Rfam assigns this 84-nucleotide RNA from Catagonus wagneri to the family "mir-632 microRNA precursor family".
RNA sequence: CCCGCCGCACUGCCUGUCGGGAGGCAGAGCAGCGAGCGAGGGCGUCGGCCAUUUUGUGGCUGUUUCCUGUGGGACGUGGUGGCG
Numbered sequence: 001c002c003c004g005c006c007g008c009a010c011u012g013c014c015u016g017u018c019g020g021g022a023g024g025c026a027g028a029g030c031a032g033c034g035a036g037c038g039a040g041g042g043c044g045u046c047g048g049c050c051a052u053u054u055u056g057u058g059g060c061u062g063u064u065u066c067c068u069g070u071g072g073g074a075c076g077u078g079g080u081g082g083c084g
Base pairs, nucleotide, nucleotide: 002082003081004080005079006078007077008076011074014073015072018069019068020067021066022065023064024063025062026061027060029057030056031055032054034050037047038046039045

The match comes from Rfam's covariance-model search (80 bits).